[Rfam]
RNA sequence: CGAAGUGACACGCGGUGCCCGUUGCGGGCUGAGAUAAGACGCGUUGAACCUGAUCUAGAGACGGCCGCCGGAACAGGCGGCCCUUGGCCUAGCGGAGGGAUGUCGCGGAUGAGUAUU
Numbered sequence: 001c002g003a004a005g006u007g008a009c010a011c012g013c014g015g016u017g018c019c020c021g022u023u024g025c026g027g028g029c030u031g032a033g034a035u036a037a038g039a040c041g042c043g044u045u046g047a048a049c050c051u052g053a054u055c056u057a058g059a060g061a062c063g064g065c066c067g068c069c070g071g072a073a074c075a076g077g078c079g080g081c082c083c084u085u086g087g088c089c090u091a092g093c094g095g096a097g098g099g100a101u102g103u104c105g106c107g108g109a110u111g112a113g114u115a116u117u
Stems, first nucleotide, its partner, number of pairs: 006105005011043004016037001017029005049098003055092004
RNA: TPP riboswitch aptamer (THI element)